[Rfam]
RNA sequence: GCCGAGCUCAGUAGCGUGGGCUUGUAAUCCAAGCGGAGGCACUGGAUGAUUUGAACGAUUGGUUCGCCUCCGUUGACCGGAUCUCGACCGCUCUCAGUCGGCCCGCCCGUUCCAAGUUGGGCAGUUGAUCUACGCAGCUUAGGCGAAAGCCUGGGUUCAGUGGAUCGUAGAGAAGAGGGGAAUGCGUGAGGCUGGUUUCACAGAGCAGCGAAUACCUCUCGCUCUCAACGGUGGAAGGAUAACGGGCCCGUGCUGUUGCGAUCCACUAUGGUCCUAGGAGUGUUCCAAUCGGACGGUCAUCUUU
Numbered sequence: 001g002c003c004g005a006g007c008u009c010a011g012u013a014g015c016g017u018g019g020g021c022u023u024g025u026a027a028u029c030c031a032a033g034c035g036g037a038g039g040c041a042c043u044g045g046a047u048g049a050u051u052u053g054a055a056c057g058a059u060u061g062g063u064u065c066g067c068c069u070c071c072g073u074u075g076a077c078c079g080g081a082u083c084u085c086g087a088c089c090g091c092u093c094u095c096a097g098u099c100g101g102c103c104c105g106c107c108c109g110u111u112c113c114a115a116g117u118u119g120g121g122c123a124g125u126u127g128a129u130c131u132a133c134g135c136a137g138c139u140u141a142g143g144c145g146a147a148a149g150c151c152u153g154g155g156u157u158c159a160g161u162g163g164a165u166c167g168u169a170g171a172g173a174a175g176a177g178g179g180g181a182a183u184g185c186g187u188g189a190g191g192c193u194g195g196u197u198u199c200a201c202a203g204a205g206c207a208g209c210g211a212a213u214a215c216c217u218c219u220c221g222c223u224c225u226c227a228a229c230g231g232u233g234g235a236a237g238g239a240u241a242a243c244g245g246g247c248c249c250g251u252g253c254u255g256u257u258g259c260g261a262u263c264c265a266c267u268a269u270g271g272u273c274c275u276a277g278g279a280g281u282g283u284u285c286c287a288a289u290c291g292g293a294c295g296g297u298c299a300u301c302u303u304u
Base pairs, nucleotide, nucleotide: 001040002039003038004023005022006021007020008019009018010017028037029036030035044302045301046300047299048298049297050296051295053294056291057290059288060287061286062285065282066281067280069279070278071277075273076272077271078270079264080263081262082261083260085258086257088255090253092252098250100248101247102246103245104244105243107238108237110236111235112234113233114232116229117228118227119226120225121224123223124222125221127166128165129164130163131162132161133160136157137156138155139154140153141152142151143150144149174219175218176217177216178215183212185210186209187208192203193202194201
RNA: Plant signal recognition particle RNA
Organism: Carex littledalei